Purine riboswitch aptamer: a 102-nucleotide sequence from Desulfosporosinus metallidurans. The literature on the family includes a 2003 paper in Cell by Mandal et al., "Riboswitches Control Fundamental Biochemical Pathways in Bacillus subtilis and Other Bacteria". Pairs were carried over by alignment from the consensus structure, which is taken from published work. Riboswitches are metabolite binding domains within certain messenger RNAs that serve as precision sensors for their corresponding targets. Allosteric rearrangement of mRNA structure is mediated by ligand binding, and this results in modulation of gene expression.
[Rfam]
RNA sequence: AAGACAAAUGAAUAGUGUGUUCAUAUAGUAGCAGAGAUAAGGUCUGCGAGUUUCUACCGGACUGCCGUAAAUGGUCCGACUAUGAGCGAAAGUGUACCUAAG
Numbered sequence: 001a002a003g004a005c006a007a008a009u010g011a012a013u014a015g016u017g018u019g020u021u022c023a024u025a026u027a028g029u030a031g032c033a034g035a036g037a038u039a040a041g042g043u044c045u046g047c048g049a050g051u052u053u054c055u056a057c058c059g060g061a062c063u064g065c066c067g068u069a070a071a072u073g074g075u076c077c078g079a080c081u082a083u084g085a086g087c088g089a090a091a092g093u094g095u096a097c098c099u100a101a102g
Stems, first nucleotide, its partner, number of pairs: 018088008029049001031047005058078007